[Rfam]
RNA sequence: AGUUCAUAAGGCGAUGGAGUUCGCCAUAACCGCCUGCGAAGGCUAAUGACUCCUACCAGCGU
Numbered sequence: 001a002g003u004u005c006a007u008a009a010g011g012c013g014a015u016g017g018a019g020u021u022c023g024c025c026a027u028a029a030c031c032g033c034c035u036g037c038g039a040a041g042g043c044u045a046a047u048g049a050c051u052c053c054u055a056c057c058a059g060c061g062u
Stems, first nucleotide, its partner, number of pairs: 010025004016053006032043004

About this RNA: The family of this 62-nucleotide sequence from Paenibacillus solanacearum is "Fluoride riboswitch aptamer (crcB RNA motif)". Gene Ontology terms of the family: positive regulation of gene expression and response to fluoride. The base pairs follow the family's consensus structure, which is taken from published work.